A member of the RNA family "Sense overlapping transcript RNA 2652 (sot)" from Natronomonas pharaonis, 189 nucleotides long.
Rfam's curators write: It is associated with IS1341-type transposase (tnpB) genes, at the 3'-end in H. salinarum NRC-1. The tetraloop structural motif may be functional.
Rfam 15.1 lists 37 matches to the family in 25 species.
The source organism's lineage runs through Archaea, Halobacteria, Halobacteriales, Natronomonas and Natronomonas pharaonis.
RNA sequence: AUUACCGGACUCACAAAACCCAGCCACAGGUUCGGUUGGUGCGUCUGUCCGGGUCGGGGCGUGUAAGCCGCCCAACCUCAUCCCGCUCGCUUGCCGAGCAGGGAGUGCUAGCGCACGGCUGAGGGAACUACAAAAGCCUCGGGCCACCGUGCCCGAGGUUGUUUACUACUGUUUGAAUCCUGCCGGACG
Numbered sequence: 001a002u003u004a005c006c007g008g009a010c011u012c013a014c015a016a017a018a019c020c021c022a023g024c025c026a027c028a029g030g031u032u033c034g035g036u037u038g039g040u041g042c043g044u045c046u047g048u049c050c051g052g053g054u055c056g057g058g059g060c061g062u063g064u065a066a067g068c069c070g071c072c073c074a075a076c077c078u079c080a081u082c083c084c085g086c087u088c089g090c091u092u093g094c095c096g097a098g099c100a101g102g103g104a105g106u107g108c109u110a111g112c113g114c115a116c117g118g119c120u121g122a123g124g125g126a127a128c129u130a131c132a133a134a135a136g137c138c139u140c141g142g143g144c145c146a147c148c149g150u151g152c153c154c155g156a157g158g159u160u161g162u163u164u165a166c167u168a169c170u171g172u173u174u175g176a177a178u179c180c181u182g183c184c185g186g187a188c189g
Stems, first nucleotide, its partner, number of pairs: 005052006013044002020039006053076002057073005062067001088189002091186003095182001096180001098178001102169001104167004109121004135160010